[Rfam]
RNA sequence: AGGUCAUUUCAAAGCGGGCUUCCAGAGCUGUGAAACCAAGAUCUCUUAAUGCUGAGAGCAAAGACUGAUGUUCCCCACAGGAUGCCACAGUCACUCAAUUCUGCUGUGUUUUCCUAAGGAGAUAUAAGA
Numbered sequence: 001a002g003g004u005c006a007u008u009u010c011a012a013a014g015c016g017g018g019c020u021u022c023c024a025g026a027g028c029u030g031u032g033a034a035a036c037c038a039a040g041a042u043c044u045c046u047u048a049a050u051g052c053u054g055a056g057a058g059c060a061a062a063g064a065c066u067g068a069u070g071u072u073c074c075c076c077a078c079a080g081g082a083u084g085c086c087a088c089a090g091u092c093a094c095u096c097a098a099u100u101c102u103g104c105u106g107u108g109u110u111u112u113c114c115u116a117a118g119g120a121g122a123u124a125u126a127a128g129a
Stems, first nucleotide, its partner, number of pairs: 002059001004057002007054001014047001016045003020041002027036001072122002075119002079115004087107004092103002
Dot-bracket structure: .(.((.(......(.(((.((.....(........)...)).))).)......).)).)............((.((..((((....((((.((........))))))....))))..)).)).......